[Rfam]
RNA sequence: UUUAGCUGCACCUUAUUUGUGGCUAUUGUCUCCUGUGGCCCCUGGUGCGAUAACUGUGCCAACAGCAGAGGGAGCAUUAAACUCAUUGCCCACGGUAAAGUGUGGGGAGUGAUACCCAUGUUCCUAUAAUC
Number, nucleotide and partner (000 for none) at each position: 001u000002u000003u000004a000005g057006c056007u000008g054009c000010a051011c000012c000013u000014u047015a046016u045017u000018u000019g000020u000021g040022g039023c038024u037025a036026u035027u000028g000029u000030c000031u000032c000033c000034u000035g026036u025037g024038g023039c022040c021041c000042c000043u000044g000045g016046u015047g014048c000049g000050a000051u010052a000053a000054c008055u000056g006057u005058g000059c000060c000061a000062a000063c000064a000065g000066c000067a000068g000069a000070g000071g124072g000073a122074g121075c120076a119077u118078u000079a000080a000081a000082c000083u112084c111085a110086u109087u108088g000089c000090c000091c104092a103093c102094g000095g000096u000097a000098a000099a000100g000101u000102g093103u092104g091105g000106g000107g000108a087109g086110u085111g084112a083113u000114a000115c000116c000117c000118a077119u076120g075121u074122u073123c000124c071125u000126a000127u000128a000129a000130u000131c000
RNA: Small nucleolar RNA ACA64